[Rfam]
Rfam assigns this 136-nucleotide sequence from Helicobacter sp. MIT 99-10781 to the family "purD RNA motif". On this family, see Weinberg et al., Nucleic Acids Res 2007: "Identification of 22 candidate structured RNAs in bacteria using the CMfinder comparative genomics pipeline". The family's consensus secondary structure is taken from published work. It is annotated as a cis-regulatory element.
RNA sequence: GUAGAGUUUCUGUGUGUUCGGUAUUUUCGCCUGCAGCUUGAUAAAAGUGAGAAUCUGCCGCCUAAGUGAGACCUCCUCUCCCUGUUUGUUCUCUUUUUUAGGCUUUGCUAACUUUUAGAGUAACGCCUAUCUGGGU
Numbered sequence: 001g002u003a004g005a006g007u008u009u010c011u012g013u014g015u016g017u018u019c020g021g022u023a024u025u026u027u028c029g030c031c032u033g034c035a036g037c038u039u040g041a042u043a044a045a046a047g048u049g050a051g052a053a054u055c056u057g058c059c060g061c062c063u064a065a066g067u068g069a070g071a072c073c074u075c076c077u078c079u080c081c082c083u084g085u086u087u088g089u090u091c092u093c094u095u096u097u098u099u100a101g102g103c104u105u106u107g108c109u110a111a112c113u114u115u116u117a118g119a120g121u122a123a124c125g126c127c128u129a130u131c132u133g134g135g136u
Stems, first nucleotide, its partner, number of pairs: 003074002006072005019060005026053003036048004088112003